[Rfam]
RNA sequence: CAACAUACGUGGGGGAGUGCGUAGUGACGCACUGAGAGACUAAGAAAUUAGGAUACCCUUUGCACCUGAUACAGUUCAUACUGUCGUAGGGAACACGAAUAACUUUACU
Numbered sequence: 001c002a003a004c005a006u007a008c009g010u011g012g013g014g015g016a017g018u019g020c021g022u023a024g025u026g027a028c029g030c031a032c033u034g035a036g037a038g039a040c041u042a043a044g045a046a047a048u049u050a051g052g053a054u055a056c057c058c059u060u061u062g063c064a065c066c067u068g069a070u071a072c073a074g075u076u077c078a079u080a081c082u083g084u085c086g087u088a089g090g091g092a093a094c095a096c097g098a099a100u101a102a103c104u105u106u107a108c109u
Stems, first nucleotide, its partner, number of pairs: 006097001009094002011059004017032005040051004065090004071084004
RNA: TPP riboswitch aptamer (THI element)